Source information: Rfam assigns this 170-nucleotide RNA sequence from Roseiarcus fermentans to the family "Group II catalytic intron D1-D4-3". Pairs were carried over by alignment from the consensus structure. NCBI's taxonomy places the organism under Bacteria, Pseudomonadota, Hyphomicrobiales, Roseiarcaceae, Roseiarcus.
RNA sequence: GUCGUCGUGAGGCGGGGUCUGAAGGAAGCGAGGAGCAAACCCGCGACCCGAUGGACAAGAACCGGAUACGAGGCCUACCCGGCCGGACGAGCGGGCCAAUGACCGCAAAGUCCACGGUCAUCAAAGACCGGGGUGGUAGAUCCGGCGGGUGUGCGGGGAAGGCGUUCGAU
Numbered sequence: 001g002u003c004g005u006c007g008u009g010a011g012g013c014g015g016g017g018u019c020u021g022a023a024g025g026a027a028g029c030g031a032g033g034a035g036c037a038a039a040c041c042c043g044c045g046a047c048c049c050g051a052u053g054g055a056c057a058a059g060a061a062c063c064g065g066a067u068a069c070g071a072g073g074c075c076u077a078c079c080c081g082g083c084c085g086g087a088c089g090a091g092c093g094g095g096c097c098a099a100u101g102a103c104c105g106c107a108a109a110g111u112c113c114a115c116g117g118u119c120a121u122c123a124a125a126g127a128c129c130g131g132g133g134u135g136g137u138a139g140a141u142c143c144g145g146c147g148g149g150u151g152u153g154c155g156g157g158g159a160a161g162g163c164g165u166u167c168g169a170u
Stems, first nucleotide, its partner, number of pairs: 002015005028170001032166001035163002040157006046150005062145006073137003078132005085113004091106004